The record is a 90-nucleotide RNA from Turnera subulata, which matches "Small nucleolar RNA Z159/U59" in Rfam. Rfam 15.1 lists 1,401 matches to the family in 272 species. The family's consensus secondary structure was predicted with PFOLD. Lineage of the source: Eukaryota > Tracheophyta > rosids > fabids > Turnera. For this family Rfam cites "The high diversity of snoRNAs in plants: identification and comparative study of 120 snoRNA genes from Oryza sativa" (Chen et al., Nucleic Acids Res, 2003). Rfam classes the family as a C/D-box small nucleolar RNA.

RNA sequence: GUCUCUAAUGAUGAUUAAAACUGAAGAAACUUUCGUUCUUCUGAAAAUCUUCCGUGUGGAAAGUUUUAUGGAGACCUGAACUGAAGAGAC
Numbered sequence: 001g002u003c004u005c006u007a008a009u010g011a012u013g014a015u016u017a018a019a020a021c022u023g024a025a026g027a028a029a030c031u032u033u034c035g036u037u038c039u040u041c042u043g044a045a046a047a048u049c050u051u052c053c054g055u056g057u058g059g060a061a062a063g064u065u066u067u068a069u070g071g072a073g074a075c076c077u078g079a080a081c082u083g084a085a086g087a088g089a090c
Stems, first nucleotide, its partner, number of pairs: 003088004